[Rfam]
RNA sequence: CAGAAUCAUGAGUGUGUCUCUAAUAUAAGCCGAAGAUUUGGUUCGGCGUCUCUACAAAGCACCGUAAAUGCUUUUCUAUUAGGAAAAACGAUGAUGCG
Number, nucleotide and partner (000 for none) at each position: 001c000002a000003g000004a000005a000006u000007c000008a000009u000010g000011a000012g000013u000014g000015u000016g000017u000018c000019u083020c082021u081022a080023a079024u078025a077026u000027a000028a000029g047030c046031c045032g044033a043034a042035g000036a000037u000038u000039u000040g000041g000042u034043u033044c032045g031046g030047c029048g000049u000050c000051u000052c000053u000054a000055c000056a074057a073058a072059g071060c070061a069062c000063c000064g000065u000066a000067a000068a000069u061070g060071c059072u058073u057074u056075u000076c000077u025078a024079u023080u022081a021082g020083g019084a000085a000086a000087a000088a000089c000090g000091a000092u000093g000094a000095u000096g000097c000098g000
The record is a 98-nucleotide RNA sequence from a Pseudomonadota bacterium, which matches "Purine riboswitch aptamer" in Rfam. A reference for the family is Mandal et al. (2003), "Riboswitches Control Fundamental Biochemical Pathways in Bacillus subtilis and Other Bacteria", Cell. Rfam's curators write: Riboswitches are metabolite binding domains within certain messenger RNAs that serve as precision sensors for their corresponding targets. Pairs were carried over by alignment from the consensus structure, which is taken from published work. It scores 59 bits against the family's covariance model. NCBI's taxonomy places the organism under Bacteria, Pseudomonadati, Pseudomonadota.